[Rfam]
RNA sequence: UUGUUCAAAAGGCAAAGCGGUGCGAAAGCCCGUGGCGCAAAACUACAGGGUCUACGUCGGAAGCUCCAGGCCGAUAUGACAGCCAGAUGCCACA
Numbered sequence: 001u002u003g004u005u006c007a008a009a010a011g012g013c014a015a016a017g018c019g020g021u022g023c024g025a026a027a028g029c030c031c032g033u034g035g036c037g038c039a040a041a042a043c044u045a046c047a048g049g050g051u052c053u054a055c056g057u058c059g060g061a062a063g064c065u066c067c068a069g070g071c072c073g074a075u076a077u078g079a080c081a082g083c084c085a086g087a088u089g090c091c092a093c094a
Stems, first nucleotide, its partner, number of pairs: 012038002017033004022029002041088001043086002048084002050080003057074004

This 94-nucleotide sequence from Eubacterium callanderi belongs to the Rfam family "c-di-GMP-I riboswitch aptamer". Its family is annotated with cyclic-di-GMP binding in the Gene Ontology. NCBI's taxonomy places the organism under Bacteria, Bacillota, Clostridia, Eubacteriales, Eubacterium. Pairs were carried over by alignment from the consensus structure, which is taken from published work. A search with the family's covariance model found it, with a score of 59 bits.